[Rfam]
RNA sequence: UGGGCGGUAUCGAAAGAACUGCACCUUGUUGAUUUAUUUUAUAAAAAAAUAGUUCUGCCUGGAUCCGGUAGCGGACUGGGACAGAGGG
Numbered sequence: 001u002g003g004g005c006g007g008u009a010u011c012g013a014a015a016g017a018a019c020u021g022c023a024c025c026u027u028g029u030u031g032a033u034u035u036a037u038u039u040u041a042u043a044a045a046a047a048a049a050u051a052g053u054u055c056u057g058c059c060u061g062g063a064u065c066c067g068g069u070a071g072c073g074g075a076c077u078g079g080g081a082c083a084g085a086g087g088g
Base pairs, nucleotide, nucleotide: 002025003024004022005021006020007019008018010017011016055084056083057082058080059079060078061077062076064075065074066073

This 88-nucleotide sequence from Mesobacillus selenatarsenatis belongs to the Rfam family "pan motif". It scores 69 bits against the family's covariance model. The base pairs follow the family's consensus structure, which is taken from published work. Lineage of the source: Bacteria > Bacillati > Bacillota > Caryophanales > Mesobacillus selenatarsenatis.